The family of this 52-nucleotide sequence from Halovulum marinum is "ffh sRNA".

RNA sequence: UUACGUCAGGAUCGCCAUCCGUCAGCGCGUCGCGCCCGCGGGUGCUAUCAUG
Numbered sequence: 001u002u003a004c005g006u007c008a009g010g011a012u013c014g015c016c017a018u019c020c021g022u023c024a025g026c027g028c029g030u031c032g033c034g035c036c037c038g039c040g041g042g043u044g045c046u047a048u049c050a051u052g
Stems, first nucleotide, its partner, number of pairs: 016044007025035004
On this family, see Meyer et al., BMC Genomics 2009: "Identification of candidate structured RNAs in the marine organism 'Candidatus Pelagibacter ubique'".
Pairs were carried over by alignment from the consensus structure, which is taken from published work.